This 73-nucleotide RNA from Lutibacter oricola belongs to the Rfam family "S15-Flavobacteria ribosomal protein leader". It is annotated as a cis-regulatory leader. The base pairs follow the family's consensus structure, which is taken from published work. A search with the family's covariance model found it, with a score of 49 bits. Its Rfam clan is "Ribosomal Protein S15 Leader clan".

[Rfam]
RNA sequence: UAUAUUUGCCGCUUAUUCGCCACAUAAUGUAGCGAUAUACAUAAAAAUUAUUAAUAAAAUUAAUGUUAGCAUG
Numbered sequence: 001u002a003u004a005u006u007u008g009c010c011g012c013u014u015a016u017u018c019g020c021c022a023c024a025u026a027a028u029g030u031a032g033c034g035a036u037a038u039a040c041a042u043a044a045a046a047a048u049u050a051u052u053a054a055u056a057a058a059a060u061u062a063a064u065g066u067u068a069g070c071a072u073g
Base pairs, nucleotide, nucleotide: 017035018034019033020032022030